Shown here is a 192-nucleotide RNA from Aquarana catesbeiana, a member of the family "U2 spliceosomal RNA". A search with the family's covariance model found it, with a score of 165 bits. The literature on the family includes a 2001 paper in RNA by Berglund et al., "Crystal structure of a model branchpoint-U2 snRNA duplex containing bulged adenosines". It is annotated as a spliceosomal small nuclear RNA. U2 is a small nuclear RNA (snRNA) component of the spliceosome (involved in pre-mRNA splicing). Complementary binding between U2 snRNA (in an area lying towards the 5' end but 3' to hairpin I) and the branchpoint sequence (BPS) of the intron results the bulging out of an unpaired adenosine, on the BPS, which initiates a nucleophilic attack at the intronic 5' splice site, thus starting the first of two transesterification reactions that mediate splicing. Lineage of the source: Eukaryota > Teleostomi > Tetrapoda > Ranidae > Aquarana.
RNA sequence: GCCGCUUCUCAGCCUUUUGGCUAAGAUCAAUUGCAGUAUCUGUUCUUAUCAGUUUAAUAUCUGAUAUAUCCUCUAUCUGAGGGGACCAUAUAUUAAUUGAUUUUUAGAAUAGGGAGAUGGAAGAAGAGCUUGCUCUGUCCACUCCACGCAUCGACCUGGUAUUGUAGUACCACCAGGACCGGUGCACCCCUC
Numbered sequence: 001g002c003c004g005c006u007u008c009u010c011a012g013c014c015u016u017u018u019g020g021c022u023a024a025g026a027u028c029a030a031u032u033g034c035a036g037u038a039u040c041u042g043u044u045c046u047u048a049u050c051a052g053u054u055u056a057a058u059a060u061c062u063g064a065u066a067u068a069u070c071c072u073c074u075a076u077c078u079g080a081g082g083g084g085a086c087c088a089u090a091u092a093u094u095a096a097u098u099g100a101u102u103u104u105u106a107g108a109a110u111a112g113g114g115a116g117a118u119g120g121a122a123g124a125a126g127a128g129c130u131u132g133c134u135c136u137g138u139c140c141a142c143u144c145c146a147c148g149c150a151u152c153g154a155c156c157u158g159g160u161a162u163u164g165u166a167g168u169a170c171c172a173c174c175a176g177g178a179c180c181g182g183u184g185c186a187c188c189c190c191u192c
Base pairs, nucleotide, nucleotide: 007026008025009024011022012021013020014019047066048065049064050063051062052061069083070082071081072080073079113145114144115143116142119139120138125136126135127134128133148185149184150183151182152181153180155177156176157175158174159173160172
Dot-bracket structure: ......(((.((((....)))).)))....................((((((........))))))..(((((.....))))).............................((((..((....((((....)))).))..))))..((((((.((((((...........))))))..)))))).......